[Rfam]
RNA sequence: GACUAACCAAAUCACGCUUUCAAUAGUUAACAUUCGUGUUGGUUAUUGUCAGGUUAGUCCAGUCUAAGUCUCUUAGGAGGCUACGUUAUUUAGGUCAGGACACCUUUAGGUGCAAGCCAGCCUUCUGCUAGUAGCGCUAAUAGUUAAACAGGUUCAAGUGAUUCUAGAAGACCAGUGCUAUUAGUGUAAAAAGCCUAGAUAACAUUGACGAGGCACACUUUAC
Numbered sequence: 001g002a003c004u005a006a007c008c009a010a011a012u013c014a015c016g017c018u019u020u021c022a023a024u025a026g027u028u029a030a031c032a033u034u035c036g037u038g039u040u041g042g043u044u045a046u047u048g049u050c051a052g053g054u055u056a057g058u059c060c061a062g063u064c065u066a067a068g069u070c071u072c073u074u075a076g077g078a079g080g081c082u083a084c085g086u087u088a089u090u091u092a093g094g095u096c097a098g099g100a101c102a103c104c105u106u107u108a109g110g111u112g113c114a115a116g117c118c119a120g121c122c123u124u125c126u127g128c129u130a131g132u133a134g135c136g137c138u139a140a141u142a143g144u145u146a147a148a149c150a151g152g153u154u155c156a157a158g159u160g161a162u163u164c165u166a167g168a169a170g171a172c173c174a175g176u177g178c179u180a181u182u183a184g185u186g187u188a189a190a191a192a193g194c195c196u197a198g199a200u201a202a203c204a205u206u207g208a209c210g211a212g213g214c215a216c217a218c219u220u221u222a223c
Stems, first nucleotide, its partner, number of pairs: 001059008010028002029040004062209003066205001067082005085203011100132002104127001108123004112219001116214003136185009148176002151173004155167001